[Rfam]
RNA sequence: AGGGAGCAAGCCGAAAAUCCCGUAACAGAGUAGGCG
Numbered sequence: 001a002g003g004g005a006g007c008a009a010g011c012c013g014a015a016a017a018u019c020c021c022g023u024a025a026c027a028g029a030g031u032a033g034g035c036g
Stems, first nucleotide, its partner, number of pairs: 002021004010035003
RNA: DUF805b RNA